[Rfam]
RNA sequence: CACGACAAAGCCACACUCGCCGCGAGGCGGGGCCGGAAAGCCACGGGUCUUCAAUGCAAGACAGCCGGGUUGCCACAC
Numbered sequence: 001c002a003c004g005a006c007a008a009a010g011c012c013a014c015a016c017u018c019g020c021c022g023c024g025a026g027g028c029g030g031g032g033c034c035g036g037a038a039a040g041c042c043a044c045g046g047g048u049c050u051u052c053a054a055u056g057c058a059a060g061a062c063a064g065c066c067g068g069g070u071u072g073c074c075a076c077a078c
Base pairs, nucleotide, nucleotide: 004074011036012035016031017030018029019028020027021026034064039071040070041069042068044067045066046065047062048061049060
Shown here is a 78-nucleotide sequence from Methylocaldum marinum, a member of the family "c-di-GMP-I-GGC riboswitch aptamer". Clan: c-di-GMP_I riboswitch clan. The match comes from Rfam's covariance-model search (65 bits). The family's consensus secondary structure is taken from published work.